[Rfam]
Shown here is an 89-nucleotide sequence from Caenorhabditis elegans, a member of the family "mir-75 microRNA precursor family". Rfam's curators put it in the seed alignment. The family's consensus secondary structure was predicted with RNAalifold. On this family, see Lau et al., Science 2001: "An abundant class of tiny RNAs with probable regulatory roles in Caenorhabditis elegans". The organism belongs to Caenorhabditis, within Eukaryota.
RNA sequence: UGCUUUGAAGAAUUGCAGUCGGUUGCAAGCUUAAAUACAAAUCCGAAUUGUUAUUAAAGCUACCAACCGGCUUCAAGUCUGAAAGAGCA
Dot-bracket structure: .((((...(((.(((.(((((((((..(((((.(((((((.......))).)))).)))))..))))))))).))).)))....)))).
Numbered sequence: 001u002g003c004u005u006u007g008a009a010g011a012a013u014u015g016c017a018g019u020c021g022g023u024u025g026c027a028a029g030c031u032u033a034a035a036u037a038c039a040a041a042u043c044c045g046a047a048u049u050g051u052u053a054u055u056a057a058a059g060c061u062a063c064c065a066a067c068c069g070g071c072u073u074c075a076a077g078u079c080u081g082a083a084a085g086a087g088c089a
Stems, first nucleotide, its partner, number of pairs: 002088004009080003013076003017072009028061005034055004038050003